[Rfam]
RNA sequence: CCAUGUUACAGUGCUUUUAGAAUUUGUCUAGCAAGUUCUCUGGUCUUUUUUGGAAAACCAGU
Numbered sequence: 001c002c003a004u005g006u007u008a009c010a011g012u013g014c015u016u017u018u019a020g021a022a023u024u025u026g027u028c029u030a031g032c033a034a035g036u037u038c039u040c041u042g043g044u045c046u047u048u049u050u051u052g053g054a055a056a057a058c059c060a061g062u
Base pairs, nucleotide, nucleotide: 035058036057037056039054040053041052042051043050

About this RNA:
The record is a 62-nucleotide RNA sequence from Aotus nancymaae, which matches "U7 small nuclear RNA" in Rfam. Taxonomically the source falls in Aotus (Eukaryota, Chordata, Craniata, Amniota). A reference for the family is Mowry and Steitz (1987), "Identification of the human U7 snRNP as one of several factors involved in the 3' end maturation of histone premessenger RNA's", Science. Animal histone pre-mRNAs are spliced by a different mechanism than nuclear pre-mRNAs and self-splicing introns. This processing involves the U7 snRNP, which contains only one RNA species: U7. The 5' end of U7 RNA is thought to base-pair to a conserved spacer element downstream of the cleavage site in histone pre-mRNA. This family contains a number of annotated U7 pseudogenes.